Rfam assigns this 128-nucleotide RNA from Climacteris rufus to the family "Small nucleolar RNA SNORA71". The family has 40 seed sequences and 1,805 matches in Rfam 15.1. The base pairs follow the family's consensus structure, which was predicted with PFOLD. A reference for the family is Ganot et al. (1997), "The family of box ACA small nucleolar RNAs is defined by an evolutionarily conserved secondary structure and ubiquitous sequence elements essential for RNA accumulation", Genes Dev.

[Rfam]
RNA sequence: CCCUGCAUUCGAAAGUGAUCACGGUCCCGCCCGUGGCCGGGUCAUUGAUAGUGCAGGGAGAGGAGCACGAGAGCUUUCCCGUGUUUGGGGGGGUCUUUGUCCCACCCAAACCCUGUUGCUGUCGGACA
Numbered sequence: 001c002c003c004u005g006c007a008u009u010c011g012a013a014a015g016u017g018a019u020c021a022c023g024g025u026c027c028c029g030c031c032c033g034u035g036g037c038c039g040g041g042u043c044a045u046u047g048a049u050a051g052u053g054c055a056g057g058g059a060g061a062g063g064a065g066c067a068c069g070a071g072a073g074c075u076u077u078c079c080c081g082u083g084u085u086u087g088g089g090g091g092g093g094u095c096u097u098u099g100u101c102c103c104a105c106c107c108a109a110a111c112c113c114u115g116u117u118g119c120u121g122u123c124g125g126a127c128a
Stems, first nucleotide, its partner, number of pairs: 001058009014046007023038004066125001068124003072120003083111005088105001090103003
The members of this family belong to the H/ACA class of snoRNAs which bind a number of proteins (including dyskerin, Gar1p and Nop10p) to form snoRNP complexes. This class of snoRNAs are thought to guide the sites of modification of uridines to pseudouridines by forming direct base pairing interactions with substrate RNAs. This family includes U71 (SNORA71), ACA39 (SNORA39) and ACA60 (SNORA60). U71 and ACA60 are predicted to guide the pseudouridylation of U406 and U1004 in 18S rRNA respectively. By type it is an H/ACA-box small nucleolar RNA.